The record is a 125-nucleotide sequence from Clostridium sartagoforme, which matches "cis-regulatory element of the bglG/LicT operon" in Rfam. NCBI's taxonomy places the organism under Bacteria, Bacillati, Clostridia, Eubacteriales, Clostridium. It scores 99 bits against the family's covariance model. On this family, see Soutourina et al., PLoS Genet 2013: "Genome-wide identification of regulatory RNAs in the human pathogen Clostridium difficile".
[Rfam]
RNA sequence: AAAACUAGUAGUAACGAGGUAGUUAUUACUUUGAGUAUGUAACUGGUAAGCAGGCAGAACUCAGAUUAGAUAGAAAAGGUCCUUUUCUAUCUAAUCUGAGUUUUUUUUCUAGAAAGGAGUAUUUU
Dot-bracket structure: .(..(.(((((((((......)))))))))..)..)(.(((.((..(...(.(..(((((((((((((((((((...........))))))))))))))))))).....).)..)..))))).).